[Rfam]
RNA sequence: AUUCGCGGGUCGUGGGGAGCGCCACUGUGUCAAUCCUCGUGGAUUUCCCAAGAUCCGUGAU
Numbered sequence: 001a002u003u004c005g006c007g008g009g010u011c012g013u014g015g016g017g018a019g020c021g022c023c024a025c026u027g028u029g030u031c032a033a034u035c036c037u038c039g040u041g042g043a044u045u046u047c048c049c050a051a052g053a054u055c056c057g058u059g060a061u
Stems, first nucleotide, its partner, number of pairs: 004059008013050005019045001022042004027037001029035001
The family of this 61-nucleotide sequence from Magallana gigas is "mir-1986 microRNA precursor family". The base pairs follow the family's consensus structure, which was predicted with RNAalifold. Gene Ontology terms of the family: RISC complex and miRNA-mediated post-transcriptional gene silencing. The organism belongs to Magallana, within Eukaryota.